The record is a 126-nucleotide sequence from Diatraea saccharalis, which matches "U4atac minor spliceosomal RNA" in Rfam. Clan: U4 clan. Taxonomically the source falls in Diatraea (Eukaryota, Opisthokonta, Panarthropoda, Neoptera). Rfam links the family to the GO terms mRNA 5'-splice site recognition, pre-mRNA 5'-splice site binding and spliceosomal tri-snRNP complex assembly. Rfam's curators write: U4atac is an essential component of the minor U12-type spliceosome complex which is required for removal of the rarer class of eukaryotic introns (AT-AC, U12-type). The base pairs follow the family's consensus structure, which is taken from published work.

RNA sequence: ACCAUCCUUGUCUUAGGGAGCAUAGUGCACAGUGAUCGAAAAGUGAGAGCACUUAUGCUGACACCCACAAGAUAAUUUCCUCGCGCCUGGCUGAUUUAAAAUCAUCUGAGUGCAAUUUUUAAAAUA
Numbered sequence: 001a002c003c004a005u006c007c008u009u010g011u012c013u014u015a016g017g018g019a020g021c022a023u024a025g026u027g028c029a030c031a032g033u034g035a036u037c038g039a040a041a042a043g044u045g046a047g048a049g050c051a052c053u054u055a056u057g058c059u060g061a062c063a064c065c066c067a068c069a070a071g072a073u074a075a076u077u078u079c080c081u082c083g084c085g086c087c088u089g090g091c092u093g094a095u096u097u098a099a100a101a102u103c104a105u106c107u108g109a110g111u112g113c114a115a116u117u118u119u120u121a122a123a124a125u126a
Base pairs, nucleotide, nucleotide: 005019006018007017008016009015020058021057022056023055024053025052026051027050028049030047037043083113084112085111086110088108092104093103094102095101096100